[Rfam]
RNA sequence: AAAACACGGCGAGUUCGCUUUCGCGAACGUCGCUUAUUGACGUAUGCGCGUUCCGCGCAUCAAUGCAACAAUCUCCAAAAUUGAUAUUUUGUUCGGUCGUUGCAUUUUAAG
Numbered sequence: 001a002a003a004a005c006a007c008g009g010c011g012a013g014u015u016c017g018c019u020u021u022c023g024c025g026a027a028c029g030u031c032g033c034u035u036a037u038u039g040a041c042g043u044a045u046g047c048g049c050g051u052u053c054c055g056c057g058c059a060u061c062a063a064u065g066c067a068a069c070a071a072u073c074u075c076c077a078a079a080a081u082u083g084a085u086a087u088u089u090u091g092u093u094c095g096g097u098c099g100u101u102g103c104a105u106u107u108u109a110a111g
Stems, first nucleotide, its partner, number of pairs: 011031002013028006046058005063105007071097003076091006

Rfam assigns this 111-nucleotide RNA sequence from Treponema vincentii to the family "TD-1 RNA". A reference for the family is Weinberg et al. (2007), "Identification of 22 candidate structured RNAs in bacteria using the CMfinder comparative genomics pipeline", Nucleic Acids Res. By type it is a cis-regulatory element. The base pairs follow the family's consensus structure, which is taken from published work.